[Rfam]
RNA sequence: GAGUUGUUGCCCGAGUGGUUAAUGGGGGCGGAUUGUAAAUCCGCUAGUUCAUCUUUCGCUGGUUCGAAUCCAGCACGACUCA
Dot-bracket structure: (((((((..((((.........)))).(((((.......))))).............(((((.......)))))))))))).
The record is an 82-nucleotide RNA from Euglena gracilis, which matches "tRNA" in Rfam.